[Rfam]
RNA sequence: GGAAGUUAAGAAACUGUUUCUUAACUUUUAACUAAAAAAACUAAAAACCGAUUCUUAAAUAAGGACUUCAAGAACCGGUUUUUAUCCAUUUUAGUUAAAAGUUAAGAAACAGUUUCUUAAUUUCC
Numbered sequence: 001g002g003a004a005g006u007u008a009a010g011a012a013a014c015u016g017u018u019u020c021u022u023a024a025c026u027u028u029u030a031a032c033u034a035a036a037a038a039a040a041c042u043a044a045a046a047a048c049c050g051a052u053u054c055u056u057a058a059a060u061a062a063g064g065a066c067u068u069c070a071a072g073a074a075c076c077g078g079u080u081u082u083u084a085u086c087c088a089u090u091u092u093a094g095u096u097a098a099a100a101g102u103u104a105a106g107a108a109a110c111a112g113u114u115u116c117u118u119a120a121u122u123u124c125c
Stems, first nucleotide, its partner, number of pairs: 001125037042084006

The record is a 125-nucleotide RNA sequence from Brassica napus, which matches "MIR9563 microRNA precursor family" in Rfam. Rfam 15.1 lists 5,832 matches to the family in 9 species.